[Rfam]
RNA sequence: AGAGAAUUGACUGAGUGGUUUAAAGUGCCGGCCUUGAGUACUGGUAUGGGGUUCUCCCAUCAUGGGUUCGAAUCCCAUAUUCUCUG
Numbered sequence: 001a002g003a004g005a006a007u008u009g010a011c012u013g014a015g016u017g018g019u020u021u022a023a024a025g026u027g028c029c030g031g032c033c034u035u036g037a038g039u040a041c042u043g044g045u046a047u048g049g050g051g052u053u054c055u056c057c058c059a060u061c062a063u064g065g066g067u068u069c070g071a072a073u074c075c076c077a078u079a080u081u082c083u084c085u086g
Stems, first nucleotide, its partner, number of pairs: 001085007010026003028044004062078005
The family of this 86-nucleotide RNA sequence from Colletotrichum plurivorum is "tRNA".